[Rfam]
RNA: Molybdenum/Tungsten riboswitch aptamer (Moco RNA motif)
RNA sequence: AAAUUAAAUAUUCUCCGAGCAAAAGUAUCUAAGGCAGAGCUAUGAUACUGCGCCAAGUAAUAUAUAAAUUACUUCAGGUUAUGAUGGAAACGUUAUAGCCAUCCGUUAUUUGAGAAGGAGAAAAUAUAAGGGGUAG
Numbered sequence: 001a002a003a004u005u006a007a008a009u010a011u012u013c014u015c016c017g018a019g020c021a022a023a024a025g026u027a028u029c030u031a032a033g034g035c036a037g038a039g040c041u042a043u044g045a046u047a048c049u050g051c052g053c054c055a056a057g058u059a060a061u062a063u064a065u066a067a068a069u070u071a072c073u074u075c076a077g078g079u080u081a082u083g084a085u086g087g088a089a090a091c092g093u094u095a096u097a098g099c100c101a102u103c104c105g106u107u108a109u110u111u112g113a114g115a116a117g118g119a120g121a122a123a124a125u126a127u128a129a130g131g132g133g134u135a136g
Stems, first nucleotide, its partner, number of pairs: 004129001006127001011122006019053002024049006033041003055074007077100010102113002